[Rfam]
RNA sequence: GGUUUCGAUUGGUGCAAACCCAAUCACCUCAAUUUGCAAUUUAAGAUGAGAAAGACUUCCCCAUUGGUAGCAAAUGGUUACCCAUUAAGCGGGGGAAAUCCUAUU
Numbered sequence: 001g002g003u004u005u006c007g008a009u010u011g012g013u014g015c016a017a018a019c020c021c022a023a024u025c026a027c028c029u030c031a032a033u034u035u036g037c038a039a040u041u042u043a044a045g046a047u048g049a050g051a052a053a054g055a056c057u058u059c060c061c062c063a064u065u066g067g068u069a070g071c072a073a074a075u076g077g078u079u080a081c082c083c084a085u086u087a088a089g090c091g092g093g094g095g096a097a098a099u100c101c102u103a104u105u
Stems, first nucleotide, its partner, number of pairs: 009023004059094004063085002066082006
The record is a 105-nucleotide RNA, which matches "Plastid-rps12 3UTR RNA" in Rfam. The sequence is in the family's curated seed alignment. Rfam classes the family as a cis-regulatory element. Pairs were carried over by alignment from the consensus structure, which was predicted with LocARNA. On this family, see Richter et al., Plant Commun 2023: "Retrograde signaling in plants: A critical review focusing on the GUN pathway and beyond". From the family's description: Plastid rpl20 is a non-coding RNA (ncRNA) recognised in plastids. It was found in the three prime untranslated region (3UTR) of rps12 gene, its 3UTR location sugest a role in transcript maduration.